RNA: Small nucleolar RNA SNORA64/SNORA10 family
RNA sequence: AGUCUCUUAGCUCAGCAUAGUUACACUUGGCAUCACCUGUGUGACUUUCUAAAUGGAAAGAGGGAGAAAAGAUCUCCUCAGAACCUUGGAACCCUGGAUUGGCUUUACAGUGGCCUUCCUUUACUUGAGGGGCACAACAGGU
Number, nucleotide and partner (000 for none) at each position: 001a000002g000003u065004c064005u063006c062007u061008u060009a000010g000011c000012u057013c056014a000015g054016c000017a000018u000019a046020g045021u044022u043023a042024c041025a040026c039027u000028u000029g000030g000031c000032a000033u000034c000035a000036c000037c000038u000039g026040u025041g024042u023043g022044a021045c020046u019047u000048u000049c000050u000051a000052a000053a000054u015055g000056g013057a012058a000059a000060g008061a007062g006063g005064g004065a003066g000067a000068a000069a000070a000071g000072a000073u000074c132075u131076c130077c129078u128079c000080a125081g124082a000083a000084c000085c000086u000087u000088g000089g000090a000091a000092c000093c000094c000095u000096g119097g118098a117099u000100u000101g115102g114103c113104u112105u000106u000107a000108c000109a000110g000111u000112g104113g103114c102115c101116u000117u098118c097119c096120u000121u000122u000123a000124c081125u080126u000127g000128a078129g077130g076131g075132g074133c000134a000135c000136a000137a000138c000139a000140g000141g000142u000